[Rfam]
Shown here is a 74-nucleotide sequence from Chionis minor, a member of the family "Small nucleolar RNA SNORD58". The match comes from Rfam's covariance-model search (66 bits). Pairs were carried over by alignment from the consensus structure, which was predicted with PFOLD. For this family Rfam cites "Purified box C/D snoRNPs are able to reproduce site-specific 2'-O-methylation of target RNA in vitro" (Galardi et al., Mol Cell Biol, 2002). Rfam describes the family as follows. snoRNA U58 is found in introns 1, 3 and 6 of the ribosomal protein RPL17 gene in humans. Gene Ontology terms of the family: nucleolus and RNA processing.
RNA sequence: UUGCGAUGAUGACUACCUUAGGACACCUUUGGAACCCCCAUGAAAACAAAACAAAAGUUUUUUUUCUGAGCAAC
Numbered sequence: 001u002u003g004c005g006a007u008g009a010u011g012a013c014u015a016c017c018u019u020a021g022g023a024c025a026c027c028u029u030u031g032g033a034a035c036c037c038c039c040a041u042g043a044a045a046a047c048a049a050a051a052c053a054a055a056a057g058u059u060u061u062u063u064u065u066c067u068g069a070g071c072a073a074c
Stems, first nucleotide, its partner, number of pairs: 001073004